[Rfam]
RNA sequence: CUGGAAUGAUGAAAGUUAGCCAAAUCGUAUAAUGAUGUGCUCCUCCUGGUGUCAUCUUAGUCUGCACUUGGUGAAGUUUUCUUCUUCCCAAGUACAAGAUGAGAUGACUGGAGUUGAAGUUUGCAUCAGUAUGUGAUGAUAGAAAUGGAGAUUGGUAACUUGCUGACCAGA
Numbered sequence: 001c002u003g004g005a006a007u008g009a010u011g012a013a014a015g016u017u018a019g020c021c022a023a024a025u026c027g028u029a030u031a032a033u034g035a036u037g038u039g040c041u042c043c044u045c046c047u048g049g050u051g052u053c054a055u056c057u058u059a060g061u062c063u064g065c066a067c068u069u070g071g072u073g074a075a076g077u078u079u080u081c082u083u084c085u086u087c088c089c090a091a092g093u094a095c096a097a098g099a100u101g102a103g104a105u106g107a108c109u110g111g112a113g114u115u116g117a118a119g120u121u122u123g124c125a126u127c128a129g130u131a132u133g134u135g136a137u138g139a140u141a142g143a144a145a146u147g148g149a150g151a152u153u154g155g156u157a158a159c160u161u162g163c164u165g166a167c168c169a170g171a
Base pairs, nucleotide, nucleotide: 001170002169003168004167
small nucleolar RNA snoR127: a 171-nucleotide RNA sequence from Zea mays. The family's RNA type in Rfam is C/D-box small nucleolar RNA. The base pairs follow the family's consensus structure, which was predicted with RNAalifold. The family has 3 seed sequences and 273 matches in Rfam 15.1. Gene Ontology terms of the family: RNA processing and nucleolus. The literature on the family includes a 2009 paper in Nucleic Acids Res by Chen and Wu, "Mining small RNA sequencing data: a new approach to identify small nucleolar RNAs in Arabidopsis".